[Rfam]
Nucleotides: 080
Stems, first nucleotide, its partner, number of pairs: 009072002013068002019062001023058003029053010
Number, partner (000 for none) and nucleotide at each position: 001000c002000u003000u004000u005000a006000g007000c008000c009072c010071c011000a012000g013068u014067a015000g016000g017000a018000u019062c020000a021000g022000c023058a024057u025056c026000c027000u028000u029053u030052u031051g032050u033049c034048u035047c036046g037045u038044u039000c040000u041000u042000a043000a044038a045037a046036c047035g048034a049033g050032a051031u052030a053029a054000a055000a056025g057024a058023u059000a060000u061000a062019g063000c064000g065000g066000a067014u068013a069000a070000c071010g072009g073000g074000u075000c076000c077000c078000g079000a080000u
The family of this 80-nucleotide RNA from Flavobacterium commune is "Flavo-1 RNA". It scores 43 bits against the family's covariance model. By type it is a small RNA. Lineage of the source: Bacteria > Flavobacteriia > Flavobacteriales > Flavobacteriaceae > Flavobacterium.